Description: This 96-nucleotide RNA sequence belongs to the Rfam family "DUF3800-VIII RNA".

RNA sequence: UUUACCCUGCUACUUGCGAAGUCUCAAGUUGUACUUGGGAUACGCUCAAAUGCAAUCUAUUUAGAUAUACUACGAGCAUAGCAAGAGUGGGUUAAA
Numbered sequence: 001u002u003u004a005c006c007c008u009g010c011u012a013c014u015u016g017c018g019a020a021g022u023c024u025c026a027a028g029u030u031g032u033a034c035u036u037g038g039g040a041u042a043c044g045c046u047c048a049a050a051u052g053c054a055a056u057c058u059a060u061u062u063a064g065a066u067a068u069a070c071u072a073c074g075a076g077c078a079u080a081g082c083a084a085g086a087g088u089g090g091g092u093u094a095a096a
Base pairs, nucleotide, nucleotide: 001096002095003094004093006091007090008089009088010087011086015083016082017081021041022040023039024038025037026036027035028034029033
Dot-bracket structure: ((((.((((((...(((...(((((((((...))))))))).......................................)))..)))))).))))

Overview:
The base pairs follow the family's consensus structure, which is taken from published work. Rfam's curators put it in the seed alignment. About the family: Bacteroidetes, Cyanobacteria, Firmicutes, Planctomycetes (1 example), Proteobacteria, Tenericutes (1 example).